This 75-nucleotide RNA sequence from Capitella teleta belongs to the Rfam family "mir-216 microRNA precursor family". NCBI's taxonomy places the organism under Eukaryota, Eumetazoa, Protostomia, Scolecida, Capitella.
RNA sequence: UAAUUGUCUAAUCUCAGUUGGUAAUUCAGAGUGCUGGAAUUCGUUCUCGGAUUAACAGCUGGGAUCGGACAAAUA
Numbered sequence: 001u002a003a004u005u006g007u008c009u010a011a012u013c014u015c016a017g018u019u020g021g022u023a024a025u026u027c028a029g030a031g032u033g034c035u036g037g038a039a040u041u042c043g044u045u046c047u048c049g050g051a052u053u054a055a056c057a058g059c060u061g062g063g064a065u066c067g068g069a070c071a072a073a074u075a
Base pairs, nucleotide, nucleotide: 004072005071006070007069009067011065012064013063014062015061016060017059021056022055023053024052026051027050029048030047031046